Overview:
The record is a 139-nucleotide sequence from Pangasianodon hypophthalmus, which matches "Small nucleolar RNA SNORA29" in Rfam. Taxonomically the source falls in Pangasianodon (Eukaryota, Deuterostomia, Teleostomi, Siluriformes). A reference for the family is Huttenhofer et al. (2001), "RNomics: an experimental approach that identifies 201 candidates for novel, small, non-messenger RNAs in mouse", EMBO J. Rfam's curators write: ACA29 is a member of the H/ACA class of snoRNA that guide the sites of modification of uridines to pseudouridines. Its Rfam clan is "SNORA20 clan". By type it is an H/ACA-box small nucleolar RNA.
Nucleotides: 139
Stems, first nucleotide, its partner, number of pairs: 004058004016045004074126004092114003
Number, partner (000 for none) and nucleotide at each position: 001000g002000u003000u004058c005057c006056u007055g008000u009000u010000a011000u012000a013000g014000u015000a016045c017044c018043a019042c020000c021000c022000a023000u024000c025000u026000g027000c028000c029000u030000c031000c032000u033000c034000u035000c036000u037000c038000a039000u040000g041000u042019g043018u044017g045016g046000c047000u048000a049000u050000g051000c052000u053000a054000a055007c056006a057005g058004g059000a060000u061000a062000g063000a064000g065000g066000a067000a068000c069000c070000u071000g072000c073000u074126g075125u076124c077123a078000g079000a080000g081000u082000c083000u084000g085000a086000a087000g088000g089000g090000g091000u092114a093113g094112a095000u096000g097000g098000a099000c100000a101000c102000a103000c104000c105000c106000a107000c108000u109000g110000c111000c112094u113093c114092u115000a116000u117000a118000u119000g120000u121000a122000c123077u124076g125075a126074c127000a128000g129000c130000a131000c132000a133000u134000c135000a136000c137000u138000a139000a